A member of the RNA family "Plastid-ycf2 5UTR RNA" from Taxus chinensis, 74 nucleotides long. NCBI's taxonomy places the organism under Eukaryota, Viridiplantae, Streptophytina, Acrogymnospermae, Taxus. The base pairs follow the family's consensus structure, which was predicted with LocARNA. The match comes from Rfam's covariance-model search (74 bits). For this family Rfam cites "Retrograde signaling in plants: A critical review focusing on the GUN pathway and beyond" (Richter et al., Plant Commun, 2023). About the family: Plastid ycf2 is a non-coding RNA (ncRNA) recognised in plastids. It was found in the prime untranslated region (5UTR) of ycf2 genes, it presents a tRNA-like motif which suggests it can be involved in mRNA maturation, particularly involved in defining the precise 5' end of the transcript.
RNA sequence: AUGCAUCUAGCAGGAAUUGAACCCGCGACUUCACAAUUAUGAGUUGGGUUCUUUUACCAUUCAUUCAUGGAUGC
Numbered sequence: 001a002u003g004c005a006u007c008u009a010g011c012a013g014g015a016a017u018u019g020a021a022c023c024c025g026c027g028a029c030u031u032c033a034c035a036a037u038u039a040u041g042a043g044u045u046g047g048g049u050u051c052u053u054u055u056a057c058c059a060u061u062c063a064u065u066c067a068u069g070g071a072u073g074c
Stems, first nucleotide, its partner, number of pairs: 003074006010026002013023002039068003043065001045063005